RNA: Small nucleolar RNA SNORD79
Organism: Xenopus laevis
RNA sequence: UACUGUGUAUGAUGAUUUUGAAUUAUCAAUGGGAAUCUCUCCGAACAAUGAUGAGGGAACUCUUCGCACUGAGCCAGUA
Numbered sequence: 001u002a003c004u005g006u007g008u009a010u011g012a013u014g015a016u017u018u019u020g021a022a023u024u025a026u027c028a029a030u031g032g033g034a035a036u037c038u039c040u041c042c043g044a045a046c047a048a049u050g051a052u053g054a055g056g057g058a059a060c061u062c063u064u065c066g067c068a069c070u071g072a073g074c075c076a077g078u079a
Base pairs, nucleotide, nucleotide: 001079002078003077004076005075